[Rfam]
RNA sequence: UCCGCCGCGAGGUGGAAUCUGAAGGAAGCCGGCGGCAAACCUCCGGCCCGAGGACCACGAACCCCAGGCGAGGCUAGUGGCAGCCGGAUGAGCGUGCAUGACAACGCGAAGUCGCGGCUCUCGAAGGCUGCCAAGAGUAUAUGGGGCGGGUAGAUGGAGGGAAAGACAGCGUC
Numbered sequence: 001u002c003c004g005c006c007g008c009g010a011g012g013u014g015g016a017a018u019c020u021g022a023a024g025g026a027a028g029c030c031g032g033c034g035g036c037a038a039a040c041c042u043c044c045g046g047c048c049c050g051a052g053g054a055c056c057a058c059g060a061a062c063c064c065c066a067g068g069c070g071a072g073g074c075u076a077g078u079g080g081c082a083g084c085c086g087g088a089u090g091a092g093c094g095u096g097c098a099u100g101a102c103a104a105c106g107c108g109a110a111g112u113c114g115c116g117g118c119u120c121u122c123g124a125a126g127g128c129u130g131c132c133a134a135g136a137g138u139a140u141a142u143g144g145g146g147c148g149g150g151u152a153g154a155u156g157g158a159g160g161g162a163a164a165g166a167c168a169g170c171g172u173c
Base pairs, nucleotide, nucleotide: 001016002015003014004013005012006011028173030171031170036165040160041159042158043157044156045155046151047150048149049148050147062146063145064144065143066142073138074137075136079132080131081130082129083128084127087113088112089111092107093106094105095104
Source information: The record is a 173-nucleotide sequence from Gelria sp. Kuro-4, which matches "Group II catalytic intron D1-D4-3" in Rfam. The source organism's lineage runs through Bacteria, Bacillota, Clostridia, Thermoanaerobacterales and Gelria. The match comes from Rfam's covariance-model search (122 bits).